Shown here is a 90-nucleotide RNA sequence, a member of the family "GA-cis RNA".
[Rfam]
RNA sequence: UUGAGGAGGCGACCAUUGGAAGCGCAGCUUACAAUUCUUAUGUCGCCGACGACUUGCCGCCGAAGCGAAGCUGAGGGGGCGUUUCCUUAU
Dot-bracket structure: .......((((((...((.(((.....))).))........))))))........(((.((..((.....))..)).)))..........

Annotation
By type it is a small RNA.